[Rfam]
RNA sequence: GGAAAAGCGUUGAAGAGGAGUAUUAAGAAACACCGCAUAGAAGCGUUUAAAACGAAAAGCAAGAGAGCUGCCGGGUGGUGCAAGGCAGGUAUGCAGGAUUCCCAACUCGCCUCAGAGUUCCCGGAUUGAACAGACUGAAGCCAGUGAAAAGUAGAUACGGGCGGGAUUUCCCGUUACAGAAAAAAAGAGUGCGCGGACAGAAUGAAUCCGCGAAUUAGAGUGGUACCACGGAAAAGAAACCCUUUCGCCUCUAGC
Numbered sequence: 001g002g003a004a005a006a007g008c009g010u011u012g013a014a015g016a017g018g019a020g021u022a023u024u025a026a027g028a029a030a031c032a033c034c035g036c037a038u039a040g041a042a043g044c045g046u047u048u049a050a051a052a053c054g055a056a057a058a059g060c061a062a063g064a065g066a067g068c069u070g071c072c073g074g075g076u077g078g079u080g081c082a083a084g085g086c087a088g089g090u091a092u093g094c095a096g097g098a099u100u101c102c103c104a105a106c107u108c109g110c111c112u113c114a115g116a117g118u119u120c121c122c123g124g125a126u127u128g129a130a131c132a133g134a135c136u137g138a139a140g141c142c143a144g145u146g147a148a149a150a151g152u153a154g155a156u157a158c159g160g161g162c163g164g165g166a167u168u169u170c171c172c173g174u175u176a177c178a179g180a181a182a183a184a185a186a187g188a189g190u191g192c193g194c195g196g197a198c199a200g201a202a203u204g205a206a207u208c209c210g211c212g213a214a215u216u217a218g219a220g221u222g223g224u225a226c227c228a229c230g231g232a233a234a235a236g237a238a239a240c241c242c243u244u245u246c247g248c249c250u251c252u253a254g255c
Stems, first nucleotide, its partner, number of pairs: 007118002015113004027101003031097001037092003068088005121160003125156003162173003192212006217252004229247004
Shown here is a 255-nucleotide RNA from Blautia argi, a member of the family "T-box leader".
The base pairs follow the family's consensus structure, which is taken from published work.
A reference for the family is Winkler et al. (2001), "The GA motif: an RNA element common to bacterial antitermination systems, rRNA, and eukaryotic RNAs", RNA.
Rfam classes the family as a cis-regulatory leader.
From the family's description: Uncharged tRNA acts as the effector for transcription antitermination of genes in the T-box leader family.